[Rfam]
RNA sequence: ACCUACCAGAAAAUACCGUAAGGACAAUCGUUUAACUAUAAUAUUAAUAAAAAGGUCGACAUUUUGUUUAUUUUCGGAAGAAAGGGUAUUAUUAAGGUAGUUGCAUCACAGUAAUGUGUUUGCGGGAG
Number, nucleotide and partner (000 for none) at each position: 001a000002c000003c100004u099005a098006c097007c096008a000009g000010a000011a000012a000013a000014u088015a087016c086017c085018g000019u000020a000021a000022g069023g068024a067025c066026a065027a064028u000029c000030g000031u000032u000033u000034a000035a000036c000037u000038a000039u000040a000041a000042u000043a000044u000045u000046a000047a000048u000049a000050a000051a000052a000053a000054g000055g000056u000057c000058g000059a000060c000061a000062u000063u000064u027065u026066g025067u024068u023069u022070a000071u000072u079073u078074u000075c000076g000077g000078a073079a072080g000081a000082a000083a000084g000085g017086g016087u015088a014089u000090u000091a000092u000093u000094a000095a000096g007097g006098u005099a004100g003101u000102u000103g123104c122105a121106u000107c118108a117109c116110a115111g000112u000113a000114a000115u110116g109117u108118g107119u000120u000121u105122g104123c103124g000125g000126g000127a000128g000
lysM-TM7 RNA: a 128-nucleotide RNA sequence. The sequence is in the family's curated seed alignment.